[Rfam]
RNA sequence: UAUUAGGUUGGUGCAAAAGUAAUCACGGUUUUUGCCAUUGAGCAUAAUGGCAAAACCCGCGAUUACUUUUGCACCAACCUAAUG
Numbered sequence: 001u002a003u004u005a006g007g008u009u010g011g012u013g014c015a016a017a018a019g020u021a022a023u024c025a026c027g028g029u030u031u032u033u034g035c036c037a038u039u040g041a042g043c044a045u046a047a048u049g050g051c052a053a054a055a056c057c058c059g060c061g062a063u064u065a066c067u068u069u070u071g072c073a074c075c076a077a078c079c080u081a082a083u084g
Stems, first nucleotide, its partner, number of pairs: 001084024026059003030055011